[Rfam]
RNA sequence: UAGGGGAGGCCGGAUCCUGGGCUGUGUCCCCGGCACCCUGUGCUCCCGGGCCUGCACUGUUGGAUUCCCGUUCCCGGCCACGCAGCCCCCU
Numbered sequence: 001u002a003g004g005g006g007a008g009g010c011c012g013g014a015u016c017c018u019g020g021g022c023u024g025u026g027u028c029c030c031c032g033g034c035a036c037c038c039u040g041u042g043c044u045c046c047c048g049g050g051c052c053u054g055c056a057c058u059g060u061u062g063g064a065u066u067c068c069c070g071u072u073c074c075c076g077g078c079c080a081c082g083c084a085g086c087c088c089c090c091u
Stems, first nucleotide, its partner, number of pairs: 003089004009083002012079002016077002019074003023070002026067001027064002030062001031059003036054001040052001042051003